Description: This 35-nucleotide sequence belongs to the Rfam family "DUF805b RNA". The base pairs follow the family's consensus structure, which is taken from published work.
[Rfam]
RNA sequence: AAGGCGGAGCCGAAAAGCCUGUAAAAGAGUAGGAA
Numbered sequence: 001a002a003g004g005c006g007g008a009g010c011c012g013a014a015a016a017g018c019c020u021g022u023a024a025a026a027g028a029g030u031a032g033g034a035a
Base pairs, nucleotide, nucleotide: 002020003019004018005017010033011032